[Rfam]
RNA sequence: CUGUCACAAUGGCAGUGUCCGGAUCUUCCGGACUAGGUGAUCCACACCAGUGUUUCGGACAGCGGUUCGAUUCCGCUCAGCUCCAUUCCCCCUCUCCGGGGCUGCAAUGGUUUCGACGGGGCAUGAGGAGGGUGACUGAAGCCUGCUCGGUGAGAGCAAACCCGUAACUGCGAACAACAUCGUUCGUUUCUCCCGUCAAGCAGCCCCUGUUGCUGCCUGACCCUUAGGGGAGAUGGGGUGAAGUCAGCCUUAUCACCCAAAUGACUCAUGGGGGCUGGAAGGCCCC
Number, nucleotide and partner (000 for none) at each position: 001c000002u000003g000004u000005c000006a000007c000008a000009a000010u000011g000012g000013c000014a000015g000016u000017g033018u032019c031020c030021g029022g028023a027024u000025c000026u000027u023028c022029c021030g020031g019032a018033c017034u000035a000036g137037g136038u135039g000040a133041u132042c131043c130044a000045c000046a000047c128048c127049a000050g124051u123052g122053u121054u120055u119056c118057g117058g000059a000060c000061a077062g076063c075064g074065g073066u000067u000068c000069g000070a000071u000072u000073c065074c064075g063076c062077u061078c104079a103080g102081c101082u100083c099084c098085a000086u000087u000088c000089c000090c000091c000092c000093u000094c000095u000096c000097c000098g084099g083100g082101g081102c080103u079104g078105c000106a000107a000108u000109g000110g000111u000112u000113u000114c000115g000116a000117c057118g056119g055120g054121g053122c052123a051124u050125g000126a000127g048128g047129a000130g043131g042132g041133u040134g000135a038136c037137u036138g000139a000140a000141g000142c000143c000144u158145g157146c156147u155148c154149g000150g000151u000152g000153a000154g148155a147156g146157c145158a144159a000160a000161c000162c000163c000164g000165u000166a000167a000168c000169u000170g000171c000172g000173a000174a000175c000176a000177a000178c000179a000180u000181c000182g000183u000184u000185c000186g000187u000188u000189u000190c000191u000192c000193c000194c000195g000196u000197c000198a000199a218200g217201c000202a214203g213204c212205c000206c000207c000208u000209g000210u000211u000212g204213c203214u202215g000216c000217c200218u199219g000220a000221c000222c000223c000224u000225u000226a000227g000228g000229g258230g257231a000232g254233a253234u252235g251236g250237g249238g248239u247240g000241a000242a000243g000244u000245c000246a000247g239248c238249c237250u236251u235252a234253u233254c232255a000256c000257c230258c229259a000260a000261a000262u000263g000264a000265c000266u000267c000268a000269u000270g000271g286272g285273g284274g283275c282276u281277g000278g000279a000280a000281g276282g275283c274284c273285c272286c271
The record is a 286-nucleotide RNA from Synechococcus sp. WH 7803, which matches "Cyanobacteria transfer-messenger RNA" in Rfam. Bacterial tmRNA, also known as 10Sa RNA or SsrA, is named for its dual tRNA and mRNA-like properties. Its role is to liberate the mRNA from a stalled ribosome. To accomplish this part of the tmRNA is used as a reading frame that ends in a translation stop signal. By type it is a non-coding RNA gene.